The family of this 101-nucleotide RNA from Collichthys lucidus is "Vault RNA". Pairs were carried over by alignment from the consensus structure, which is taken from published work. The organism belongs to Collichthys, within Eukaryota. This family of RNAs are found as part of the enigmatic vault ribonucleoprotein complex. The family's RNA type in Rfam is non-coding RNA gene.
RNA sequence: GCGGCGGUUUAGCUCAGUGGUUACUUCUCACUCACACGUGUAAUCCAGCUCUCCGACCUCCGGGCCGGAGGGUUCGACCACGGGCGCUGCCCGCUGCCUUU
Numbered sequence: 001g002c003g004g005c006g007g008u009u010u011a012g013c014u015c016a017g018u019g020g021u022u023a024c025u026u027c028u029c030a031c032u033c034a035c036a037c038g039u040g041u042a043a044u045c046c047a048g049c050u051c052u053c054c055g056a057c058c059u060c061c062g063g064g065c066c067g068g069a070g071g072g073u074u075c076g077a078c079c080a081c082g083g084g085c086g087c088u089g090c091c092c093g094c095u096g097c098c099u100u101u
Stems, first nucleotide, its partner, number of pairs: 002096006012085004017081004026077002